[Rfam]
The family of this 289-nucleotide RNA sequence from Ceratodon purpureus is "Plant signal recognition particle RNA". The base pairs follow the family's consensus structure, which is taken from published work. For this family Rfam cites "Towards the structure of the mammalian signal recognition particle" (Wild et al., Curr Opin Struct Biol, 2002). Gene Ontology terms of the family: signal recognition particle, endoplasmic reticulum targeting and SRP-dependent cotranslational protein targeting to membrane, signal sequence recognition. The family is grouped with related families in Rfam's "SRP clan". A search with the family's covariance model found it, with a score of 138 bits.
RNA sequence: UCUGGGCGGUGUAGCGACCGCCUGUGACCCGAGCGGGAGCAGGAGGGUGUGGAUGUGGGGCGCUGGGUUUGGGCCUGUGAGGGCGUGUGGAGGGCCCGCCCACUCCAAACAUGGAGUCGCCGAGGCUUUCUUGCCGGAGGGCGAGGCCGCAGCGGAGUUGGAGCGGAGGGUACCGCGUGAGGCGGGUGAUCGAGCAGCGCUCACGUCCCGCUCCGUGUAGUGGAGGGAUUACGGGCCUGAAUGUUUCUCUCGGAUCAACCAGCUCAGCAUGCUCCCUCGGACCAUCUUC
Numbered sequence: 001u002c003u004g005g006g007c008g009g010u011g012u013a014g015c016g017a018c019c020g021c022c023u024g025u026g027a028c029c030c031g032a033g034c035g036g037g038a039g040c041a042g043g044a045g046g047g048u049g050u051g052g053a054u055g056u057g058g059g060g061c062g063c064u065g066g067g068u069u070u071g072g073g074c075c076u077g078u079g080a081g082g083g084c085g086u087g088u089g090g091a092g093g094g095c096c097c098g099c100c101c102a103c104u105c106c107a108a109a110c111a112u113g114g115a116g117u118c119g120c121c122g123a124g125g126c127u128u129u130c131u132u133g134c135c136g137g138a139g140g141g142c143g144a145g146g147c148c149g150c151a152g153c154g155g156a157g158u159u160g161g162a163g164c165g166g167a168g169g170g171u172a173c174c175g176c177g178u179g180a181g182g183c184g185g186g187u188g189a190u191c192g193a194g195c196a197g198c199g200c201u202c203a204c205g206u207c208c209c210g211c212u213c214c215g216u217g218u219a220g221u222g223g224a225g226g227g228a229u230u231a232c233g234g235g236c237c238u239g240a241a242u243g244u245u246u247c248u249c250u251c252g253g254a255u256c257a258a259c260c261a262g263c264u265c266a267g268c269a270u271g272c273u274c275c276c277u278c279g280g281a282c283c284a285u286c287u288u289c
Stems, first nucleotide, its partner, number of pairs: 002039002004023007028037003043289007051282001054279002057276003060272002062268008070257003074253002077250001079249001081248003086240001092238007100227002103225005109218009118157001120155003125150002129146007158163001165208003169204001175200004183192003